[Rfam]
RNA sequence: AAUCGUUCGGUUGGACUCAAGGGCGGAUCGGCGCAAACCCCGUGAAAGGGGGUGGCGCCAAUGACAGUAUUUGAAACAUUGUUUCUGAUGAUCAGCUUCAGUACGUUGAUCGUCGUUGUACUGUCAUUUCACCAAAAGAAAUAAGCCCCCCUUGAAGUCCUGACAAGGCUUGGGGGCUUAUUCUACCCAACACGCCGAUCACCCUAUGCAGGGAACCAACGAUGCAAUCGACCACUCGUGCGCUAACACGAGUG
Numbered sequence: 001a002a003u004c005g006u007u008c009g010g011u012u013g014g015a016c017u018c019a020a021g022g023g024c025g026g027a028u029c030g031g032c033g034c035a036a037a038c039c040c041c042g043u044g045a046a047a048g049g050g051g052g053u054g055g056c057g058c059c060a061a062u063g064a065c066a067g068u069a070u071u072u073g074a075a076a077c078a079u080u081g082u083u084u085c086u087g088a089u090g091a092u093c094a095g096c097u098u099c100a101g102u103a104c105g106u107u108g109a110u111c112g113u114c115g116u117u118g119u120a121c122u123g124u125c126a127u128u129u130c131a132c133c134a135a136a137a138g139a140a141a142u143a144a145g146c147c148c149c150c151c152u153u154g155a156a157g158u159c160c161u162g163a164c165a166a167g168g169c170u171u172g173g174g175g176g177c178u179u180a181u182u183c184u185a186c187c188c189a190a191c192a193c194g195c196c197g198a199u200c201a202c203c204c205u206a207u208g209c210a211g212g213g214a215a216c217c218a219a220c221g222a223u224g225c226a227a228u229c230g231a232c233c234a235c236u237c238g239u240g241c242g243c244u245a246a247c248a249c250g251a252g253u254g
Stems, first nucleotide, its partner, number of pairs: 003222003007218001009200006017155007026146001028144001034054002038051004063125007077090002100117003166184002203213002233254008
Dot-bracket structure: ..(((.(.((((((..(((((((..(.(.....((..((((......)))).))........(((((((.......((..........)).........(((............))).)))))))..................).)..)))))))..........((...............))..........))))))..((.......))....).)))..........((((((((......))))))))